RNA sequence: CGGCAUAGCGGCGCUAUCGUCUUUGCUGCGCAAGCGGCAGGGAAGGAAAGUCCGGACAGCAUAGGGCAACGCACCACCUAACGGGUGGGGCGCCUGUGAAAACAGGCGUACAGAAAGUGCCACAGAAAAUUACUUCCUCAGGGCAACCUGCGGUAAAGGUGAAAAUGUGGGGUAAGAGCCCACAUCCCGGAAUGGUAACAUUAUGGGAGGGUAAACCUUGCGUGCUGAAAUGCCAUGUAAACGGUCGUUUGAGGGCUGCCCGCCUGAUGACCGAGGGUAGGCAGAUACAGGCGCUCAGUGAUGAGCGUCGCAGAUAAAUGAUAGCGGCCGAUGCGAAAGCAAAGGCACAGAAUCCGGCUUAUAAGCUAUGCCGGGUG
Numbered sequence: 001c002g003g004c005a006u007a008g009c010g011g012c013g014c015u016a017u018c019g020u021c022u023u024u025g026c027u028g029c030g031c032a033a034g035c036g037g038c039a040g041g042g043a044a045g046g047a048a049a050g051u052c053c054g055g056a057c058a059g060c061a062u063a064g065g066g067c068a069a070c071g072c073a074c075c076a077c078c079u080a081a082c083g084g085g086u087g088g089g090g091c092g093c094c095u096g097u098g099a100a101a102a103c104a105g106g107c108g109u110a111c112a113g114a115a116a117g118u119g120c121c122a123c124a125g126a127a128a129a130u131u132a133c134u135u136c137c138u139c140a141g142g143g144c145a146a147c148c149u150g151c152g153g154u155a156a157a158g159g160u161g162a163a164a165a166u167g168u169g170g171g172g173u174a175a176g177a178g179c180c181c182a183c184a185u186c187c188c189g190g191a192a193u194g195g196u197a198a199c200a201u202u203a204u205g206g207g208a209g210g211g212u213a214a215a216c217c218u219u220g221c222g223u224g225c226u227g228a229a230a231u232g233c234c235a236u237g238u239a240a241a242c243g244g245u246c247g248u249u250u251g252a253g254g255g256c257u258g259c260c261c262g263c264c265u266g267a268u269g270a271c272c273g274a275g276g277g278u279a280g281g282c283a284g285a286u287a288c289a290g291g292c293g294c295u296c297a298g299u300g301a302u303g304a305g306c307g308u309c310g311c312a313g314a315u316a317a318a319u320g321a322u323a324g325c326g327g328c329c330g331a332u333g334c335g336a337a338a339g340c341a342a343a344g345g346c347a348c349a350g351a352a353u354c355c356g357g358c359u360u361a362u363a364a365g366c367u368a369u370g371c372c373g374g375g376u377g
Stems, first nucleotide, its partner, number of pairs: 001373009011362001012326007020043009048360003052357005057227004064261004069223005074088005089111001090109008112218002117216002119212003133158002136153002139150004166184006187206003191202004231283004242273005253265004290309008
RNA: Bacterial RNase P class A